[Rfam]
The family of this 84-nucleotide RNA sequence from Trichormus variabilis is "Photosynthesis regulatory RNA1".
The base pairs follow the family's consensus structure, which was predicted with CMfinder.
Lineage of the source: Bacteria > Bacillati > Cyanophyceae > Nostocaceae > Trichormus variabilis.
Rfam 15.1 lists 92 matches to the family in 57 species.
Its family is annotated with regulation of photosynthesis and regulation of translation in the Gene Ontology.
A reference for the family is Georg et al. (2014), "The small regulatory RNA SyR1/PsrR1 controls photosynthetic functions in cyanobacteria", Plant Cell.
From the family's description: Formerly known as Syr1 discovered in Synechocystis sp PCC 6803, is a regulatory factor controlling photosynthetic functions. PsrR1 interacts with the ribosome binding regions of several photosynthesis-related mRNAs.
The family's RNA type in Rfam is small RNA.

RNA sequence: AAGAUUUUUACAUUUCAAUAUCGCCGUAUCUCAUUGUCAUUCGUACUUCUUCUAUAAACCUCGGUUAGUUUCGCCGGGGUUUUU
Numbered sequence: 001a002a003g004a005u006u007u008u009u010a011c012a013u014u015u016c017a018a019u020a021u022c023g024c025c026g027u028a029u030c031u032c033a034u035u036g037u038c039a040u041u042c043g044u045a046c047u048u049c050u051u052c053u054a055u056a057a058a059c060c061u062c063g064g065u066u067a068g069u070u071u072c073g074c075c076g077g078g079g080u081u082u083u084u
Base pairs, nucleotide, nucleotide: 058080059079060078061077062076063075064074065073